[Rfam]
RNA sequence: UCCUGUACUGAGCUGCCCCGAGCUGAGCGCAGUGAAUGGCCUCGGGGCAGCUCAGUACAGGAUC
Numbered sequence: 001u002c003c004u005g006u007a008c009u010g011a012g013c014u015g016c017c018c019c020g021a022g023c024u025g026a027g028c029g030c031a032g033u034g035a036a037u038g039g040c041c042u043c044g045g046g047g048c049a050g051c052u053c054a055g056u057a058c059a060g061g062a063u064c
Stems, first nucleotide, its partner, number of pairs: 005058011017046005022040001
The record is a 64-nucleotide RNA sequence from Canis lupus, which matches "mir-486 microRNA precursor family" in Rfam. The source organism's lineage runs through Eukaryota, Teleostomi, Caniformia, Canidae and Canis lupus. It is one of the family's seed sequences. For this family Rfam cites "Identification of human fetal liver miRNAs by a novel method" (Fu et al., FEBS Lett, 2005).